[Rfam]
RNA: mir-711 microRNA precursor family
RNA sequence: GCUGACUUUGAAUCUCUCCUCAGGGUGCCGCGGGUAAAGCCGGGGAGCCAGGGAGAGACGUAAGUGACG
Numbered sequence: 001g002c003u004g005a006c007u008u009u010g011a012a013u014c015u016c017u018c019c020u021c022a023g024g025g026u027g028c029c030g031c032g033g034g035u036a037a038a039g040c041c042g043g044g045g046a047g048c049c050a051g052g053g054a055g056a057g058a059c060g061u062a063a064g065u066g067a068c069g
Stems, first nucleotide, its partner, number of pairs: 003067001005065004013058008023049002026046001028044002031042003